[Rfam]
RNA: Group II catalytic intron D1-D4-2
RNA sequence: GAGGGCGGGCCCCUCGGCGUAGCUUAUCAGGAGGCGAUGCCAAACCACCCUGAGCUGCAUCCGUAAAGAGCGGUUGUGGUGAGCGUCAUGGGAAAAGGCAGGAAUACUCCUGUCAGGU
Numbered sequence: 001g002a003g004g005g006c007g008g009g010c011c012c013c014u015c016g017g018c019g020u021a022g023c024u025u026a027u028c029a030g031g032a033g034g035c036g037a038u039g040c041c042a043a044a045c046c047a048c049c050c051u052g053a054g055c056u057g058c059a060u061c062c063g064u065a066a067a068g069a070g071c072g073g074u075u076g077u078g079g080u081g082a083g084c085g086u087c088a089u090g091g092g093a094a095a096a097g098g099c100a101g102g103a104a105u106a107c108u109c110c111u112g113u114c115a116g117g118u
Stems, first nucleotide, its partner, number of pairs: 001015005016041005022035003025031001046117001048092002051088003054080002057077003061073004097114006